[Rfam]
RNA sequence: GGGAGUGUUUUCCGGCUGGUGCCGGGCGCGGUCUUCAAAACCGUCGGGCGGCGUGGCGACACGUCGCCGGUGGGUUCGAUUCCCAUCCGCUCCC
Numbered sequence: 001g002g003g004a005g006u007g008u009u010u011u012c013c014g015g016c017u018g019g020u021g022c023c024g025g026g027c028g029c030g031g032u033c034u035u036c037a038a039a040a041c042c043g044u045c046g047g048g049c050g051g052c053g054u055g056g057c058g059a060c061a062c063g064u065c066g067c068c069g070g071u072g073g074g075u076u077c078g079a080u081u082c083c084c085a086u087c088c089g090c091u092c093c094c
Stems, first nucleotide, its partner, number of pairs: 001094007011026006028044005047068007071085004
The family of this 94-nucleotide RNA sequence from Isosphaera pallida is "Selenocysteine transfer RNA". The match comes from Rfam's covariance-model search (73 bits). NCBI's taxonomy places the organism under Bacteria, Planctomycetia, Isosphaerales, Isosphaera, Isosphaera pallida.